Annotation: c-di-AMP riboswitch aptamer (ydaO/yuaA leader): a 124-nucleotide sequence from Clostridium botulinum. The base pairs follow the family's consensus structure. The source organism's lineage runs through Bacteria, Bacillati, Bacillota, Clostridiaceae and Clostridium botulinum B.
[Rfam]
RNA sequence: AAACAAAUAAUGCCGAAUCUUCUUUACGAAGUACCGAGGAUACUCUUGGGGUGAAUCUCUUAGGAAUAGGGUACCUCUAACCCAAACCCGUCAACUAACCUGGAAGGCGAUAUGGAUGGAUUUA
Numbered sequence: 001a002a003a004c005a006a007a008u009a010a011u012g013c014c015g016a017a018u019c020u021u022c023u024u025u026a027c028g029a030a031g032u033a034c035c036g037a038g039g040a041u042a043c044u045c046u047u048g049g050g051g052u053g054a055a056u057c058u059c060u061u062a063g064g065a066a067u068a069g070g071g072u073a074c075c076u077c078u079a080a081c082c083c084a085a086a087c088c089c090g091u092c093a094a095c096u097a098a099c100c101u102g103g104a105a106g107g108c109g110a111u112a113u114g115g116a117u118g119g120a121u122u123u124a
Stems, first nucleotide, its partner, number of pairs: 011109004019031002034103003038099001043048001049089003058065002069083004